The family of this 153-nucleotide RNA from Streptomyces filipinensis is "c-di-AMP riboswitch aptamer (ydaO/yuaA leader)".
[Rfam]
RNA sequence: ACACUUGACCCGCUUUCGGCAGGAGCGGGGGACCCACCAGGUACGACUGCCUGUCCGGUCUCCGCGACAGGCUCGGGGUGAAGCCGUGCGCGCACGGCCGGGCGACUCCCGUCCGAACCCGACAGCUCACCUCGCAGGCGUGGGAGAGGAAUG
Number, nucleotide and partner (000 for none) at each position: 001a000002c140003a000004c138005u137006u000007g000008a000009c000010c023011c022012g000013c000014u000015u000016u000017c000018g000019g000020c000021a000022g011023g010024a000025g135026c134027g133028g132029g131030g130031g000032a000033c000034c000035c075036a000037c000038c000039a000040g000041g000042u000043a000044c000045g000046a000047c000048u000049g000050c000051c000052u000053g000054u000055c000056c000057g000058g000059u000060c000061u000062c000063c000064g000065c000066g000067a000068c000069a000070g000071g000072c000073u000074c000075g035076g120077g119078g118079u000080g000081a000082a000083g000084c097085c096086g095087u094088g000089c000090g000091c000092g000093c000094a087095c086096g085097g084098c000099c000100g114101g113102g112103c111104g000105a000106c000107u000108c000109c000110c000111g103112u102113c101114c100115g000116a000117a000118c078119c077120c076121g000122a000123c000124a000125g000126c000127u000128c000129a000130c030131c029132u028133c027134g026135c025136a000137g005138g004139c000140g002141u000142g000143g000144g000145a000146g000147a000148g000149g000150a000151a000152u000153g000
Annotation
The pairing is the family consensus, mapped onto this sequence. Taxonomically the source falls in Streptomyces (Bacteria, Actinomycetota, Actinomycetes, Streptomycetaceae). A search with the family's covariance model found it, with a score of 63 bits.